Record summary: This 273-nucleotide RNA from Ammonifex degensii belongs to the Rfam family "HNH endonuclease-associated RNA and ORF (HEARO) RNA". The source organism's lineage runs through Bacteria, Bacillota, Thermoanaerobacteraceae, Ammonifex and Ammonifex degensii. By type it is a non-coding RNA gene. A search with the family's covariance model found it, with a score of 90 bits. For this family Rfam cites "Exceptional structured noncoding RNAs revealed by bacterial metagenome analysis" (Weinberg et al., Nature, 2009).

RNA sequence: GUCAUAGACCCCACGGCUGAAGCCGGGGGCUUGUCCUCCAAGCUUCAGCCGUAGGCCCAGAAGGGCCUCGCUAUGACCAGCCUCAGGGCCUGACCCGAAGGACAAGGGGAUGAAGGUCCUACGUUACCGGGGAGAGCCGAAGUUCGCACCCUGGGGUGCUCCUCCAGCUCCAGGCUCUGCAACCCGGCGGUCACAAAGCGAAGCUGGGGGUGGUGUGCUGUAGCCUGGCUGCCGGGAGAAGGCCGCCCGGUAACAUUGGCGAGGAGGGAGGCC
Numbered sequence: 001g002u003c004a005u006a007g008a009c010c011c012c013a014c015g016g017c018u019g020a021a022g023c024c025g026g027g028g029g030c031u032u033g034u035c036c037u038c039c040a041a042g043c044u045u046c047a048g049c050c051g052u053a054g055g056c057c058c059a060g061a062a063g064g065g066c067c068u069c070g071c072u073a074u075g076a077c078c079a080g081c082c083u084c085a086g087g088g089c090c091u092g093a094c095c096c097g098a099a100g101g102a103c104a105a106g107g108g109g110a111u112g113a114a115g116g117u118c119c120u121a122c123g124u125u126a127c128c129g130g131g132g133a134g135a136g137c138c139g140a141a142g143u144u145c146g147c148a149c150c151c152u153g154g155g156g157u158g159c160u161c162c163u164c165c166a167g168c169u170c171c172a173g174g175c176u177c178u179g180c181a182a183c184c185c186g187g188c189g190g191u192c193a194c195a196a197a198g199c200g201a202a203g204c205u206g207g208g209g210g211u212g213g214u215g216u217g218c219u220g221u222a223g224c225c226u227g228g229c230u231g232c233c234g235g236g237a238g239a240a241g242g243c244c245g246c247c248c249g250g251u252a253a254c255a256u257u258g259g260c261g262a263g264g265a266g267g268g269a270g271g272c273c
Stems, first nucleotide, its partner, number of pairs: 001077007010029002012026001016023002030042004080260003085120007123254009146180002150174008160268006183236009196226001198224002201221001202219002
Dot-bracket structure: (((((((..(((...((....))..).))((((.....))))............................)))))))..(((..(((((((......................)))))))..(((((((((..............((..((((((((..[[[[[[.))))))))....))..(((((((((....(.((.(((..............)).).)).).))))))))).........)))))))))...)))..]]]]]].....